RNA sequence: UGUCUCCUCCACCCUCCUCCUUUGGUGUGGAUUUAACGCGGCUCAGCGAGCCGCGUUUUUUUUG
Number, nucleotide and partner (000 for none) at each position: 001u000002g000003u000004c000005u000006c000007c000008u031009c030010c029011a028012c027013c025014c024015u000016c000017c000018u000019c000020c000021u000022u000023u000024g014025g013026u000027g012028u011029g010030g009031a008032u000033u000034u000035a057036a056037c055038g054039c053040g052041g051042c050043u000044c000045a000046g000047c000048g000049a000050g042051c041052c040053g039054c038055g037056u036057u035058u000059u000060u000061u000062u000063u000064g000